[Rfam]
Rfam assigns this 90-nucleotide RNA sequence from Tranquillimonas rosea to the family "Glycine riboswitch aptamer". Taxonomically the source falls in Tranquillimonas (Bacteria, Pseudomonadati, Rhodobacterales, Roseobacteraceae). It scores 67 bits against the family's covariance model.
RNA sequence: GGAACGACGACGGGAGAAUCCGGGUCCUGCCCGGUGCCGAAGGAGCAACCGCCCCGGUAAACUCUCAGGCCAAAGGACCGCCGUCGGCAC
Numbered sequence: 001g002g003a004a005c006g007a008c009g010a011c012g013g014g015a016g017a018a019u020c021c022g023g024g025u026c027c028u029g030c031c032c033g034g035u036g037c038c039g040a041a042g043g044a045g046c047a048a049c050c051g052c053c054c055c056g057g058u059a060a061a062c063u064c065u066c067a068g069g070c071c072a073a074a075g076g077a078c079c080g081c082c083g084u085c086g087g088c089a090c
Stems, first nucleotide, its partner, number of pairs: 006085004011080003020034004036070003039066002043064003049057002